RNA sequence: AUCAUCAGUAGUGGUUAAUACUAUCUCAAGAUAAUAUUAAUUACCAAAAUUUCAUAGAAACCGAAUGCUCCGUCCUUUUGAUAUUUAAAGCUUUGACGUGGUUUCUCUGGUGUGUCUUUCCGGGCGCAACAGACGCGUCAAAGCUGAGUUAAUACUGAUACCGGAUGGACGGAGCAGACUAUUCAACCCAUAGCUGAAUGAACGUUGACCGGCCCCAAACAAGCCGGGCACAAUGGUCAUUUCGUUUCCGGUUUCUUAGAUCAAAAUUUUUGCCAAGAAGAAGUCUGAGCCCUGGAUUCCGGGGCUCUGGUGAGCAUGUUUCCAGAGAGACGUAUAAUGCGUCUUGAGAGUUUGGAGUCUCUAAAGUGCCCUUCUUCUUGGUAAGACAGUC
Numbered sequence: 001a002u003c004a005u006c007a008g009u010a011g012u013g014g015u016u017a018a019u020a021c022u023a024u025c026u027c028a029a030g031a032u033a034a035u036a037u038u039a040a041u042u043a044c045c046a047a048a049a050u051u052u053c054a055u056a057g058a059a060a061c062c063g064a065a066u067g068c069u070c071c072g073u074c075c076u077u078u079u080g081a082u083a084u085u086u087a088a089a090g091c092u093u094u095g096a097c098g099u100g101g102u103u104u105c106u107c108u109g110g111u112g113u114g115u116c117u118u119u120c121c122g123g124g125c126g127c128a129a130c131a132g133a134c135g136c137g138u139c140a141a142a143g144c145u146g147a148g149u150u151a152a153u154a155c156u157g158a159u160a161c162c163g164g165a166u167g168g169a170c171g172g173a174g175c176a177g178a179c180u181a182u183u184c185a186a187c188c189c190a191u192a193g194c195u196g197a198a199u200g201a202a203c204g205u206u207g208a209c210c211g212g213c214c215c216c217a218a219a220c221a222a223g224c225c226g227g228g229c230a231c232a233a234u235g236g237u238c239a240u241u242u243c244g245u246u247u248c249c250g251g252u253u254u255c256u257u258a259g260a261u262c263a264a265a266a267u268u269u270u271u272g273c274c275a276a277g278a279a280g281a282a283g284u285c286u287g288a289g290c291c292c293u294g295g296a297u298u299c300c301g302g303g304g305c306u307c308u309g310g311u312g313a314g315c316a317u318g319u320u321u322c323c324a325g326a327g328a329g330a331c332g333u334a335u336a337a338u339g340c341g342u343c344u345u346g347a348g349a350g351u352u353u354g355g356a357g358u359c360u361c362u363a364a365a366g367u368g369c370c371c372u373u374c375u376u377c378u379u380g381g382u383a384a385g386a387c388a389g390u391c
Stems, first nucleotide, its partner, number of pairs: 008050002012046002014041007022033004056256007067175009077165004082160004089145012102132002112127006147156003196242006205233003209227005270384005276378008287307008309370003316367002319364001321356006327345007
The family of this 391-nucleotide sequence from Lachancea mirantina is "Small nucleolar RNA snR37". The family's RNA type in Rfam is H/ACA-box small nucleolar RNA. Its family is annotated with nucleolus and RNA processing in the Gene Ontology. The match comes from Rfam's covariance-model search (264 bits). Its Rfam clan is "SNORA64 clan". The organism belongs to Lachancea, within Eukaryota.